[Rfam]
RNA sequence: GAGAGUGGAAGGAAGACCCCCGUGAUUAAUUUCAUGAGGAAAGUCCUCCCACCUCCGGGCAAAAGAAAAUCGAAAGGAUUUAGGUUGAGAAACCUGGCAAUGGCACAGAAACGACACGGCCUAUUCUGAGCUAUGAAACAAAUCAAAUUGUCGAGCUACGAAGAAUAGGAAACGUUGAAACGGCGAAACCUCUUUGGUGAAAGUCCAAACUGGGUUACGAGUAACCCGGCUUUAUCCCAGGUAGGACGCUAAGAUGAAUGUCUUCUCGAACAAAAGGAGGCUUACUCUCCACACUC
Numbered sequence: 001g002a003g004a005g006u007g008g009a010a011g012g013a014a015g016a017c018c019c020c021c022g023u024g025a026u027u028a029a030u031u032u033c034a035u036g037a038g039g040a041a042a043g044u045c046c047u048c049c050c051a052c053c054u055c056c057g058g059g060c061a062a063a064a065g066a067a068a069a070u071c072g073a074a075a076g077g078a079u080u081u082a083g084g085u086u087g088a089g090a091a092a093c094c095u096g097g098c099a100a101u102g103g104c105a106c107a108g109a110a111a112c113g114a115c116a117c118g119g120c121c122u123a124u125u126c127u128g129a130g131c132u133a134u135g136a137a138a139c140a141a142a143u144c145a146a147a148u149u150g151u152c153g154a155g156c157u158a159c160g161a162a163g164a165a166u167a168g169g170a171a172a173c174g175u176u177g178a179a180a181c182g183g184c185g186a187a188a189c190c191u192c193u194u195u196g197g198u199g200a201a202a203g204u205c206c207a208a209a210c211u212g213g214g215u216u217a218c219g220a221g222u223a224a225c226c227c228g229g230c231u232u233u234a235u236c237c238c239a240g241g242u243a244g245g246a247c248g249c250u251a252a253g254a255u256g257a258a259u260g261u262c263u264u265c266u267c268g269a270a271c272a273a274a275a276g277g278a279g280g281c282u283u284a285c286u287c288u289c290c291a292c293a294c295u296c
Stems, first nucleotide, its partner, number of pairs: 001296003005292005010286002012265006021036005041283003045280005050199004056229001058227002062195005067081005082095005096190002101186001103184002117174002120169008138151002203247004212238003216234001
Shown here is a 296-nucleotide sequence from archaeon SCG-AAA382B04, a member of the family "Archaeal RNase P".
The family's consensus secondary structure is taken from published work.
On this family, see Frank and Pace, Annu Rev Biochem 1998: "Ribonuclease P: unity and diversity in a tRNA processing ribozyme".
The family is grouped with related families in Rfam's "RNaseP clan".
By type it is a ribozyme.
About the family: Ribonuclease P (RNase P) is a ubiquitous endoribonuclease, found in archaea, bacteria and eukarya as well as chloroplasts and mitochondria.